RNA: small nucleolar RNA snoR19
RNA sequence: UAAAAUGAUGAUAUUAUAUAUGGGCGCACAUUUAAAUUUCAUACUACUAAAUGUAGAAUGAUGAAAAUUAUAGGUUGUCAUCCUUGAUCUGAUUAUUUUUUA
Numbered sequence: 001u002a003a004a005a006u007g008a009u010g011a012u013a014u015u016a017u018a019u020a021u022g023g024g025c026g027c028a029c030a031u032u033u034a035a036a037u038u039u040c041a042u043a044c045u046a047c048u049a050a051a052u053g054u055a056g057a058a059u060g061a062u063g064a065a066a067a068u069u070a071u072a073g074g075u076u077g078u079c080a081u082c083c084u085u086g087a088u089c090u091g092a093u094u095a096u097u098u099u100u101u102a
Stems, first nucleotide, its partner, number of pairs: 002099007